[Rfam]
RNA sequence: CUGGCUCCGGUUCACGGUGCGACGCCCCGUCGUGCUGACCCGGCGGCC
Numbered sequence: 001c002u003g004g005c006u007c008c009g010g011u012u013c014a015c016g017g018u019g020c021g022a023c024g025c026c027c028c029g030u031c032g033u034g035c036u037g038a039c040c041c042g043g044c045g046g047c048c
Stems, first nucleotide, its partner, number of pairs: 003048003007043004015037009
The family of this 48-nucleotide RNA from Jiangella muralis is "L31-Actinobacteria ribosomal protein leader". Rfam classes the family as a cis-regulatory leader. Rfam's curators put it in the seed alignment.